[Rfam]
RNA sequence: GGGAAUCUGACUGUCUAAUUAAAACAUAGCAUUGCGAUGGCCAGAAAGUGGUGUUGACGCAAUGUGAUUUCUGCCCAGUGCUCUGAAUGUCAAAGCGAAGAGAUUCGACCAAGCGCGGGUAAACGGCGGGAGUAACUAUGACUCGAGUGAAACAAGAGGGUCGUGGGACUUAUUUGGGGGGCCUCGCGGCCCCUAACAUCGCCCACCUGCGAGGGAGUCUCCGACAGGGCGCACCCACUACCACCGGACGAAAGUCCCGGGGGACAGUAACAGCGGUGAUGCACUGGAGUGACCCGCAGCCGGUCCCUAAACCUGUGUGGCAGGGGGCUCGGUUCAACGACUAUGCAGCGGUGGCUCGGGCUCUCAAGGCCCCAGCUAAAAUGUAGUCUCUGCCCCCGGCUAGCCCCGGGGGAGAGCAGCUCUUAAGGUAGCCAAAUGCCUCGUCAUCUAAUUAGUGACGCGCAUGAAUGGAUUAACGAGAUUCCCACUG
Number, nucleotide and partner (000 for none) at each position: 001g486002g485003g484004a483005a482006u481007c480008u478009g477010a000011c000012u026013g025014u024015c000016u000017a000018a000019u000020u000021a000022a000023a000024a014025c013026a012027u000028a000029g065030c064031a063032u062033u061034g060035c059036g058037a000038u000039g000040g052041c051042c050043a049044g000045a000046a000047a000048g000049u043050g042051g041052u040053g000054u000055u000056g000057a000058c036059g035060c034061a033062a032063u031064g030065u029066g000067a000068u000069u472070u471071c470072u000073g127074c126075c125076c000077a000078g124079u123080g120081c119082u118083c117084u000085g116086a000087a000088u115089g114090u113091c000092a000093a000094a000095g000096c107097g106098a105099a104100g000101a000102g000103a000104u099105u098106c097107g096108a000109c000110c000111a000112a000113g090114c089115g088116c085117g083118g082119g081120u080121a000122a000123a079124c078125g075126g074127c073128g422129g421130g420131a000132g000133u419134a000135a000136c000137u000138a000139u000140g000141a000142c000143u000144c000145g000146a000147g000148u000149g000150a000151a000152a000153c000154a000155a000156g000157a000158g000159g000160g000161u000162c000163g000164u000165g000166g000167g000168a000169c000170u000171u000172a000173u000174u000175u000176g000177g000178g000179g000180g000181g000182c000183c000184u000185c000186g000187c000188g000189g000190c000191c000192c000193c000194u000195a000196a000197c000198a000199u000200c000201g000202c000203c000204c000205a000206c000207c000208u000209g000210c000211g000212a000213g000214g000215g000216a000217g000218u000219c000220u000221c000222c000223g000224a000225c000226a000227g000228g000229g000230c000231g000232c000233a000234c000235c000236c000237a000238c000239u000240a000241c000242c000243a000244c000245c000246g000247g000248a000249c000250g000251a000252a000253a000254g000255u000256c000257c000258c000259g000260g000261g000262g000263g000264a000265c000266a000267g000268u000269a000270a000271c000272a000273g000274c000275g000276g000277u000278g000279a000280u000281g000282c000283a000284c000285u000286g000287g000288a000289g000290u000291g000292a000293c000294c000295c000296g000297c000298a000299g000300c000301c000302g000303g000304u000305c000306c000307c000308u000309a000310a000311a000312c000313c000314u000315g000316u000317g000318u000319g000320g000321c000322a000323g000324g000325g000326g000327g000328c000329u000330c000331g000332g000333u000334u000335c000336a000337a000338c000339g000340a000341c000342u000343a000344u000345g000346c000347a000348g000349c000350g000351g000352u000353g000354g000355c000356u000357c000358g000359g000360g000361c000362u000363c000364u000365c000366a000367a000368g000369g000370c000371c000372c000373c000374a000375g000376c000377u000378a000379a000380a000381a000382u000383g000384u000385a000386g000387u000388c000389u000390c000391u000392g000393c000394c000395c000396c000397c000398g000399g000400c000401u000402a000403g000404c000405c000406c000407c000408g000409g000410g000411g000412g000413a000414g000415a000416g000417c000418a000419g133420c130421u129422c128423u427424u000425a000426a000427g423428g000429u000430a000431g000432c000433c000434a000435a000436a000437u000438g000439c000440c000441u000442c000443g459444u458445c457446a456447u455448c000449u000450a000451a000452u000453u000454a000455g447456u446457g445458a444459c443460g000461c000462g000463c000464a000465u000466g000467a000468a000469u000470g071471g070472a069473u000474u000475a000476a000477c009478g008479a000480g007481a006482u005483u004484c003485c002486c001487a000488c000489u000490g000
About this RNA: This 490-nucleotide part of an RNA from Ramalina farinacea belongs to the Rfam family "Eukaryotic large subunit ribosomal RNA". The base pairs follow the family's consensus structure, which is taken from published work. Clan: LSU clan. The source organism's lineage runs through Eukaryota, Fungi, saccharomyceta, Lecanorineae and Ramalina.